[Rfam]
Rfam assigns this 207-nucleotide RNA from Medicago truncatula to the family "MIR2630 microRNA precursor family". It scores 167 bits against the family's covariance model.

RNA sequence: CUCUACAAAUAUAGAAUAUUUGAUUUUGGUCUUUGGUAUUUUGUUUUAAUCCUUGUAAAAUCAUUUCAUAUUGAAAUUGGUCUCAUUUUAAGGGACUAAAAUCAAAUAUUUUACAUAUUACAAGGACCAAAUUCAAUAUGAAUCAAUUUUAUAAGGACAAAAACAAAAUAUCAAGGACCAAAACCAAUUUUUUUAUAUUUGCUGAAA
Numbered sequence: 001c002u003c004u005a006c007a008a009a010u011a012u013a014g015a016a017u018a019u020u021u022g023a024u025u026u027u028g029g030u031c032u033u034u035g036g037u038a039u040u041u042u043g044u045u046u047u048a049a050u051c052c053u054u055g056u057a058a059a060a061u062c063a064u065u066u067c068a069u070a071u072u073g074a075a076a077u078u079g080g081u082c083u084c085a086u087u088u089u090a091a092g093g094g095a096c097u098a099a100a101a102u103c104a105a106a107u108a109u110u111u112u113a114c115a116u117a118u119u120a121c122a123a124g125g126a127c128c129a130a131a132u133u134c135a136a137u138a139u140g141a142a143u144c145a146a147u148u149u150u151a152u153a154a155g156g157a158c159a160a161a162a163a164c165a166a167a168a169u170a171u172c173a174a175g176g177a178c179c180a181a182a183a184c185c186a187a188u189u190u191u192u193u194u195a196u197a198u199u200u201g202c203u204g205a206a207a
Base pairs, nucleotide, nucleotide: 006201007200008199009198010197011196012195013194015192016191018189020187022185024183025182026181027180028179029178030177031176032175033174034173036171037170038169039168040167041166042165043164044163045162046161047160050157051156053154054153055152056151057150058149059148060147061146065142066141068139069138070137071136072135073134077130078129079128080127081126082125083124085102086101087100088099089098